[Rfam]
RNA sequence: UUGGCGAGAACAAUGUGAAUCAAGUAGUGUAGUGAUUCACGCGGUUCUCGAUC
Numbered sequence: 001u002u003g004g005c006g007a008g009a010a011c012a013a014u015g016u017g018a019a020u021c022a023a024g025u026a027g028u029g030u031a032g033u034g035a036u037u038c039a040c041g042c043g044g045u046u047c048u049c050g051a052u053c
Stems, first nucleotide, its partner, number of pairs: 005050007014041009
Plastid-ccsA-ndhD-2 3UTR RNA: a 53-nucleotide RNA from Mikania micrantha. The match comes from Rfam's covariance-model search (59 bits). By type it is a cis-regulatory element. The family has 421 seed sequences and 875 matches in Rfam 15.1. Pairs were carried over by alignment from the consensus structure, which was predicted with LocARNA. For this family Rfam cites "Control of plastid gene expression: 3' inverted repeats act as mRNA processing and stabilizing elements, but do not terminate transcription" (Stern and Gruissem, Cell, 1987). Plastid ccsA-ndhD-2 is a non-coding RNA (ncRNA) recognised in plastids. The organism belongs to Mikania, within Eukaryota.